Rfam assigns this 82-nucleotide sequence from Paenibacillus stellifer to the family "ZMP/ZTP riboswitch aptamer (pfl RNA motif)". It scores 66 bits against the family's covariance model. The family's consensus secondary structure is taken from published work. The source organism's lineage runs through Bacteria, Bacillati, Bacillota, Caryophanales and Paenibacillus.
[Rfam]
RNA sequence: UUUGGUAUGUGUGACUGGCGUAAACGUGGACAAACCACGGGGGAGCACAUAUUAUUAUCCGCCGUACGCCUGGGCAAAGUAU
Numbered sequence: 001u002u003u004g005g006u007a008u009g010u011g012u013g014a015c016u017g018g019c020g021u022a023a024a025c026g027u028g029g030a031c032a033a034a035c036c037a038c039g040g041g042g043g044a045g046c047a048c049a050u051a052u053u054a055u056u057a058u059c060c061g062c063c064g065u066a067c068g069c070c071u072g073g074g075c076a077a078a079g080u081a082u
Base pairs, nucleotide, nucleotide: 003054004053005052006051007050008049009048010047011046012045015042016041017070018069019068020067021066026038027037028036029035061075062074063073